[Rfam]
Nucleotides: 105
Base pairs, nucleotide, nucleotide: 001105003103004102005101006100007099008098013042014041015040016039017038021031022030023029025076026075027074028073043068044067045066046065048064049063050060052058072097077094078093079092080091081090082089
Number, partner (000 for none) and nucleotide at each position: 001105u002000c003103u004102u005101u006100a007099u008098c009000g010000a011000g012000a013042g014041a015040a016039g017038u018000u019000g020000a021031g022030g023029g024000a025076c026075u027074g028073g029023c030022c031021c032000u033000a034000u035000g036000a037000a038017a039016c040015u041014u042013c043068a044067g045066c046065a047000a048064c049063c050060a051000g052058c053000c054000g055000a056000a057000a058052g059000g060050u061000a062000a063049g064048g065046u066045g067044c068043u069000a070000a071000a072097u073028c074027c075026a076025g077094c078093a079092g080091g081090c082089a083000a084000g085000a086000a087000a088000u089082u090081g091080u092079c093078u094077g095000a096000c097072a098008g099007a100006u101005g102004a103003a104000a105001a